RNA: Ruegeria cis52 sRNA
Organism: Sulfitobacter sp. HI0023
RNA sequence: UGCGCAGGGCGUGUUUCAACACGAUGUCGCUGAACUUCACCCCCUUCAGGCGCGCGGUCCGGAUAUAUUGCGCCGUCAUCACCUCCGUCAUGGAGGCGCGCGUCAUCCGCGCGAUAUAUCCCAUGCCGUAGAGCGAGAUGGUCAGCACCGGCAGGAAGAAGUUCCAGAAAUUCGCAUCC
Numbered sequence: 001u002g003c004g005c006a007g008g009g010c011g012u013g014u015u016u017c018a019a020c021a022c023g024a025u026g027u028c029g030c031u032g033a034a035c036u037u038c039a040c041c042c043c044c045u046u047c048a049g050g051c052g053c054g055c056g057g058u059c060c061g062g063a064u065a066u067a068u069u070g071c072g073c074c075g076u077c078a079u080c081a082c083c084u085c086c087g088u089c090a091u092g093g094a095g096g097c098g099c100g101c102g103u104c105a106u107c108c109g110c111g112c113g114a115u116a117u118a119u120c121c122c123a124u125g126c127c128g129u130a131g132a133g134c135g136a137g138a139u140g141g142u143c144a145g146c147a148c149c150g151g152c153a154g155g156a157a158g159a160a161g162u163u164c165c166a167g168a169a170a171u172u173c174g175c176a177u178c179c
Stems, first nucleotide, its partner, number of pairs: 005140002010135003014131002016128001020125002029122001038113001040111001042109001046105001048103001050101005055075004060070003082096005145179001147177001149174003154165004